[Rfam]
RNA sequence: CUCAAGGGAGUAGCUAGCGGGAUAUCCGUUACAAGGUCGUCAAUACGAAAGCAAUUUCCGGCCUUGUAUGAAACAGCGAGACUUGUUACAGUAAACAGGUCUCUUUUU
Numbered sequence: 001c002u003c004a005a006g007g008g009a010g011u012a013g014c015u016a017g018c019g020g021g022a023u024a025u026c027c028g029u030u031a032c033a034a035g036g037u038c039g040u041c042a043a044u045a046c047g048a049a050a051g052c053a054a055u056u057u058c059c060g061g062c063c064u065u066g067u068a069u070g071a072a073a074c075a076g077c078g079a080g081a082c083u084u085g086u087u088a089c090a091g092u093a094a095a096c097a098g099g100u101c102u103c104u105u106u107u108u
Stems, first nucleotide, its partner, number of pairs: 005029001007027002011024002014021001030068010042057002047052001078103010
Streptococcus sRNA 10: a 108-nucleotide RNA from Streptococcus intermedius. Rfam classes the family as a small RNA. The source organism's lineage runs through Bacteria, Bacilli, Lactobacillales, Streptococcaceae and Streptococcus intermedius.